[Rfam]
RNA: ffh sRNA
Organism: Celeribacter baekdonensis
RNA sequence: GAGUGCCAGGAUCGCCCCCCGUCAGCGUUAUACGCCCACGGGGGCGGAACCG
Numbered sequence: 001g002a003g004u005g006c007c008a009g010g011a012u013c014g015c016c017c018c019c020c021g022u023c024a025g026c027g028u029u030a031u032a033c034g035c036c037c038a039c040g041g042g043g044g045c046g047g048a049a050c051c052g
Stems, first nucleotide, its partner, number of pairs: 016044007025035004